[Rfam]
RNA: TPP riboswitch aptamer (THI element)
Organism: Dehalogenimonas alkenigignens
Nucleotides: 104
Base pairs, nucleotide, nucleotide: 006092007091008090009089010088011054012053013052014051017025018024032047033046034045035044036043059084060083061082062081065078066077067076068075
Number, partner (000 for none) and nucleotide at each position: 001000c002000c003000a004000g005000a006092c007091c008090g009089c010088u011054a012053g013052g014051g015000g016000u017025g018024c019000g020000c021000a022000a023000a024018g025017c026000u027000g028000a029000g030000a031000g032047u033046c034045c035044u036043u037000c038000a039000g040000c041000u042000g043036a044035a045034g046033g047032a048000c049000a050000a051014c052013c053012c054011u055000g056000g057000c058000a059084c060083c061082u062081g063000a064000a065078c066077u067076c068075g069000a070000u071000a072000a073000u074000c075068c076067g077066a078065g079000c080000g081062u082061a083060g084059g085000g086000a087000a088010g089009g090008c091007g092006g093000u094000a095000u096000a097000a098000u099000a100000u101000g102000a103000c104000a